[Rfam]
RNA sequence: AACGAACGCAAUUUCAUAACUCGUAUAAUCAUGGGGAUAUGGCCCAUAAGUUUCUACCGGAUGACCAAUGCAAUCGUCCGACUAUGAGUGAGAACGCCUUUUUU
Number, nucleotide and partner (000 for none) at each position: 001a000002a000003c000004g000005a000006a000007c000008g000009c000010a000011a000012u000013u000014u000015c000016a000017u000018a000019a089020c088021u087022c086023g085024u084025a083026u000027a000028a000029u049030c000031a047032u046033g045034g044035g043036g000037a000038u000039a000040u000041g000042g000043c035044c034045c033046a032047u031048a000049a029050g000051u000052u000053u000054c000055u000056a000057c000058c080059g079060g078061a077062u076063g075064a074065c000066c000067a000068a000069u000070g000071c000072a000073a000074u064075c063076g062077u061078c060079c059080g058081a000082c000083u025084a024085u023086g022087a021088g020089u019090g000091a000092g000093a000094a000095c000096g000097c000098c000099u000100u000101u000102u000103u000104u000
The record is a 104-nucleotide RNA sequence from Paenibacillus sp. D9, which matches "Purine riboswitch aptamer" in Rfam.
The match comes from Rfam's covariance-model search (72 bits).
The base pairs follow the family's consensus structure, which is taken from published work.